[Rfam]
RNA sequence: GCUGCUCAGGUAAUCACACACCGCUACGAGGUGAGUAGCAGGCAACGAUCUUAUGAUCGGCUAAGAUGUGAUA
Numbered sequence: 001g002c003u004g005c006u007c008a009g010g011u012a013a014u015c016a017c018a019c020a021c022c023g024c025u026a027c028g029a030g031g032u033g034a035g036u037a038g039c040a041g042g043c044a045a046c047g048a049u050c051u052u053a054u055g056a057u058c059g060g061c062u063a064a065g066a067u068g069u070g071a072u073a
Stems, first nucleotide, its partner, number of pairs: 001039007020032003046059005
This 73-nucleotide RNA sequence from Clostridiales bacterium KLE1615 belongs to the Rfam family "HDV ribozyme from F. prausnitzii".
Lineage of the source: Bacteria > Bacillati > Bacillota > Clostridia > Eubacteriales.
Rfam links the family to the GO term catalytic activity.
The family's consensus secondary structure is taken from published work.